c-di-AMP riboswitch aptamer (ydaO/yuaA leader): a 175-nucleotide RNA from Actinoallomurus bryophytorum. The source organism's lineage runs through Bacteria, Bacillati, Actinomycetota, Thermomonosporaceae and Actinoallomurus. The match comes from Rfam's covariance-model search (71 bits).
RNA sequence: CAGGCCGGACCGCCGAAUCGUUCGCCGCGCAGCCAGCGCGCCGACGAACCGGGGACCCAUUCGCGGAGCUUCAGGGGCUCUCCCCCGCUCCCGGUCCCGGGGUGAAUCCGUAACCGGUAGGGCUUCUCCUUGCCCGAACCCGUCAGCUAACCCGGUAGGCGGCCCAGGAGAAAGA
Numbered sequence: 001c002a003g004g005c006c007g008g009a010c011c012g013c014c015g016a017a018u019c020g021u022u023c024g025c026c027g028c029g030c031a032g033c034c035a036g037c038g039c040g041c042c043g044a045c046g047a048a049c050c051g052g053g054g055a056c057c058c059a060u061u062c063g064c065g066g067a068g069c070u071u072c073a074g075g076g077g078c079u080c081u082c083c084c085c086c087g088c089u090c091c092c093g094g095u096c097c098c099g100g101g102g103u104g105a106a107u108c109c110g111u112a113a114c115c116g117g118u119a120g121g122g123c124u125u126c127u128c129c130u131u132g133c134c135c136g137a138a139c140c141c142g143u144c145a146g147c148u149a150a151c152c153c154g155g156u157a158g159g160c161g162g163c164c165c166a167g168g169a170g171a172a173a174g175a
Base pairs, nucleotide, nucleotide: 011161012160013159014158018047019046020045021044022043048156049155050154051153052152053151058099100141101140102139108117109116110115120135121134122133123132